[Rfam]
RNA sequence: GCAGUCAUGAUUCGGCCCGGUGGUCGAUGCGGGCUUCAAACCCGUAGCUCGAGAAAUUGAGAGGGGUUCGACUCCUCCUUGACUGC
Numbered sequence: 001g002c003a004g005u006c007a008u009g010a011u012u013c014g015g016c017c018c019g020g021u022g023g024u025c026g027a028u029g030c031g032g033g034c035u036u037c038a039a040a041c042c043c044g045u046a047g048c049u050c051g052a053g054a055a056a057u058u059g060a061g062a063g064g065g066g067u068u069c070g071a072c073u074c075c076u077c078c079u080u081g082a083c084u085g086c
Stems, first nucleotide, its partner, number of pairs: 001086007009078001012027006028046006048061005063077004
RNA: Selenocysteine transfer RNA